[Rfam]
RNA sequence: UGGUUGUCCUCUCUAAUGCCAUGUUAUGUCUCAUAGCCGAUUAACAAGGCCUCGCUUGUGGACUAUAAAAUAUAAUGGUUCUAUUAUCCUAGCACCUGAUGUGAUUGAUAAAAUUUGUGUGCUCGAGAAACGUAGAUCUAUAAUU
Numbered sequence: 001u002g003g004u005u006g007u008c009c010u011c012u013c014u015a016a017u018g019c020c021a022u023g024u025u026a027u028g029u030c031u032c033a034u035a036g037c038c039g040a041u042u043a044a045c046a047a048g049g050c051c052u053c054g055c056u057u058g059u060g061g062a063c064u065a066u067a068a069a070a071u072a073u074a075a076u077g078g079u080u081c082u083a084u085u086a087u088c089c090u091a092g093c094a095c096c097u098g099a100u101g102u103g104a105u106u107g108a109u110a111a112a113a114u115u116u117g118u119g120u121g122c123u124c125g126a127g128a129a130a131c132g133u134a135g136a137u138c139u140a141u142a143a144u145u
Stems, first nucleotide, its partner, number of pairs: 006063004019049002022046005027040001077139002080136005089127002092124001
The record is a 145-nucleotide sequence from Musca domestica, which matches "Small nucleolar RNA psi28S-1192" in Rfam. Rfam describes the family as follows. psi28S-1192 is a member of the H/ACA class of snoRNA. This family is responsible for guiding the modification of uridine 1192 to pseudouridine in Drosophila 28S rRNA. The match comes from Rfam's covariance-model search (54 bits). Rfam links the family to the GO terms RNA processing and nucleolus. The family's RNA type in Rfam is H/ACA-box small nucleolar RNA. Taxonomically the source falls in Musca (Eukaryota, Opisthokonta, Pancrustacea, Neoptera).